Background: A member of the RNA family "Ribosomal S15 leader" from Serratia symbiotica, 117 nucleotides long. The literature on the family includes a 1996 paper in Biochimie by Benard et al., "Pseudoknot and translational control in the expression of the S15 ribosomal protein".

RNA sequence: UUAGGUUGCUGAAUUAGAGAUCGGCACCUGUAGUUAUCAUCUAUAAUCUGGAGUAUUACCAUGUCUCUAAGUGUUGAAGUUAAAGCUCAAAUCGUGGCUGAUUUUGGUCGUGAUGCU
Numbered sequence: 001u002u003a004g005g006u007u008g009c010u011g012a013a014u015u016a017g018a019g020a021u022c023g024g025c026a027c028c029u030g031u032a033g034u035u036a037u038c039a040u041c042u043a044u045a046a047u048c049u050g051g052a053g054u055a056u057u058a059c060c061a062u063g064u065c066u067c068u069a070a071g072u073g074u075u076g077a078a079g080u081u082a083a084a085g086c087u088c089a090a091a092u093c094g095u096g097g098c099u100g101a102u103u104u105u106g107g108u109c110g111u112g113a114u115g116c117u
Base pairs, nucleotide, nucleotide: 007026008025009024010023011022012021047071049069050068051067052066053065